[Rfam]
RNA sequence: CUUCAGCGACCCCAGCCACAGCGGCUGGUCCGCCUCCCGCUCCUGGCCAUAGGUGGCGAGCAGCGCCUGAGCCUC
Numbered sequence: 001c002u003u004c005a006g007c008g009a010c011c012c013c014a015g016c017c018a019c020a021g022c023g024g025c026u027g028g029u030c031c032g033c034c035u036c037c038c039g040c041u042c043c044u045g046g047c048c049a050u051a052g053g054u055g056g057c058g059a060g061c062a063g064c065g066c067c068u069g070a071g072c073c074u075c
Stems, first nucleotide, its partner, number of pairs: 014026004031071001033069001038065002043060002047056003
Dot-bracket structure: .............((((.....))))....(.(....((...((..(((....)))..))...))...).)....